[Rfam]
RNA sequence: AUUCAUCUUCGGGGCAGGGUGUAAUUCCCGACCGGCGGUAAUAGAAGAUUUUCUUCUGAGCCCGCGAGCUAUAGUAUAAUAUAGCUGAUUCUAGUGAGAUUCUAGAGCCGACAGUAUAGUCUGGAUGGGAGAAGGUGAAG
Number, nucleotide and partner (000 for none) at each position: 001a000002u000003u138004c137005a136006u135007c134008u133009u132010c131011g000012g000013g000014g000015c000016a000017g029018g028019g027020u000021g000022u000023a000024a000025u000026u000027c019028c018029c017030g000031a120032c119033c110034g109035g065036c064037g063038g062039u000040a000041a000042u000043a000044g000045a000046a000047g000048a000049u000050u000051u000052u000053c000054u000055u000056c000057u000058g000059a000060g108061c107062c038063c037064g036065c035066g000067a000068g085069c084070u083071a000072u000073a000074g000075u000076a000077u000078a000079a000080u000081a000082u000083a070084g069085c068086u000087g000088a000089u000090u106091c105092u104093a103094g102095u000096g000097a000098g000099a000100u000101u000102c094103u093104a092105g091106a090107g061108c060109c034110g033111a000112c123113a122114g121115u000116a000117u000118a000119g032120u031121c114122u113123g112124g000125a000126u000127g000128g000129g000130a000131g010132a009133a008134g007135g006136u005137g004138a003139a000140g000